RNA sequence: UGACCGCUUUCCUCCGGAAAGCUAAGGCUACACGGACGGCCGGGUCAAAUGCCGA
Numbered sequence: 001u002g003a004c005c006g007c008u009u010u011c012c013u014c015c016g017g018a019a020a021g022c023u024a025a026g027g028c029u030a031c032a033c034g035g036a037c038g039g040c041c042g043g044g045u046c047a048a049a050u051g052c053c054g055a
Stems, first nucleotide, its partner, number of pairs: 001047005006022006
Annotation:
Streptococcus sRNA SpF59 (ldcC RNA): a 55-nucleotide sequence from Firmicutes bacterium CAG:137. The family's RNA type in Rfam is small RNA. The family's consensus secondary structure was predicted with mfold. Rfam's curators put it in the seed alignment.